[Rfam]
RNA: Guanidine-I riboswitch aptamer
RNA sequence: UGAUGAGGCGGCUAGGGUUCCAGCUUCGGGCAUGCCUGAAGCGUUCGGUCCGAGAGCCGCAAUCCGCGGGGAGAAAUCCCGCGGACGCACGGCGGGAUAAAAGCCCGGGAGAC
Dot-bracket structure: .......(((((..((...(((((((((........))))))..).)).))....)))))..(((((((.........)))))))..(.[...(((.......))).)..]..
Numbered sequence: 001u002g003a004u005g006a007g008g009c010g011g012c013u014a015g016g017g018u019u020c021c022a023g024c025u026u027c028g029g030g031c032a033u034g035c036c037u038g039a040a041g042c043g044u045u046c047g048g049u050c051c052g053a054g055a056g057c058c059g060c061a062a063u064c065c066g067c068g069g070g071g072a073g074a075a076a077u078c079c080c081g082c083g084g085a086c087g088c089a090c091g092g093c094g095g096g097a098u099a100a101a102a103g104c105c106c107g108g109g110a111g112a113c
Stems, first nucleotide, its partner, number of pairs: 008060005015051002020048002022045001023042006063085007088108001090111001094106003